[Rfam]
RNA sequence: CCUCCAUUUCUUGGCAUGCAUGUGGUUGUUAAGUACUCGUGUGUGUAUGUUUGGAGGAAUAAUGAAUGCAGUGCUAUGUCUUCGGUACCGGUGUGUGUUAUCGUCUGCCGGUUCUAUCCUCAAUCGCUGUGACAUUC
Numbered sequence: 001c002c003u004c005c006a007u008u009u010c011u012u013g014g015c016a017u018g019c020a021u022g023u024g025g026u027u028g029u030u031a032a033g034u035a036c037u038c039g040u041g042u043g044u045g046u047a048u049g050u051u052u053g054g055a056g057g058a059a060u061a062a063u064g065a066a067u068g069c070a071g072u073g074c075u076a077u078g079u080c081u082u083c084g085g086u087a088c089c090g091g092u093g094u095g096u097g098u099u100a101u102c103g104u105c106u107g108c109c110g111g112u113u114c115u116a117u118c119c120u121c122a123a124u125c126g127c128u129g130u131g132a133c134a135u136u137c
Base pairs, nucleotide, nucleotide: 001057002056003055004054005053015045016044017043018042019041020040022038024037025036026035069129070128071127072126073125088111089110090109091108092107093106
The record is a 137-nucleotide sequence from Scophthalmus maximus, which matches "Small nucleolar RNA SNORA57" in Rfam.
A reference for the family is Vitali et al. (2003), "Identification of 13 novel human modification guide RNAs", Nucleic Acids Res.
Rfam links the family to the GO terms nucleolus and RNA processing.
From the family's description: U99 belongs to the H/ACA class of snoRNAs which are thought to guide the sites of modification of uridines to pseudouridines, the target for this family is unknown.
Pairs were carried over by alignment from the consensus structure, which was predicted with PFOLD.
The source organism's lineage runs through Eukaryota, Gnathostomata, Euteleosteomorpha, Acanthomorphata and Scophthalmus.
The match comes from Rfam's covariance-model search (94 bits).